RNA: Small nucleolar RNA Z279/snoR105/snoR108
RNA sequence: GGGAUGUGAUGAGUGGUAAAAGCUCGCGCUGUUUGCGUGAUGAGCAGCCGCCCAGAGCCUGUUACGACAACAGGGCCUGCUCCCAUCUUUACCCUUCUGAUCCC
Numbered sequence: 001g002g003g004a005u006g007u008g009a010u011g012a013g014u015g016g017u018a019a020a021a022g023c024u025c026g027c028g029c030u031g032u033u034u035g036c037g038u039g040a041u042g043a044g045c046a047g048c049c050g051c052c053c054a055g056a057g058c059c060u061g062u063u064a065c066g067a068c069a070a071c072a073g074g075g076c077c078u079g080c081u082c083c084c085a086u087c088u089u090u091a092c093c094c095u096u097c098u099g100a101u102c103c104c
Base pairs, nucleotide, nucleotide: 001104002103003102004101015094016093023039025037026036027035042082043081044080045079046078048074059073060072061071062070
Dot-bracket structure: ((((..........((......(.(((.......))).)..(((((.(..........((((.......)))))...)))))..........))......))))